[Rfam]
RNA sequence: AAUAAAAAAGAGGAUGAAGCUCCCUCAUUUAAACUGCUGAAAAGCUGAUGGCUUCUACUAGUAG
Numbered sequence: 001a002a003u004a005a006a007a008a009a010g011a012g013g014a015u016g017a018a019g020c021u022c023c024c025u026c027a028u029u030u031a032a033a034c035u036g037c038u039g040a041a042a043a044g045c046u047g048a049u050g051g052c053u054u055c056u057a058c059u060a061g062u063a064g
Base pairs, nucleotide, nucleotide: 010026011025012024013023016055017054018053019052020051021050036045037044038043
A member of the RNA family "Fluoride riboswitch aptamer (crcB RNA motif)" from Thermoanaerobacterium thermosaccharolyticum, 64 nucleotides long. Its family is annotated with response to fluoride and positive regulation of gene expression in the Gene Ontology. The match comes from Rfam's covariance-model search (44 bits).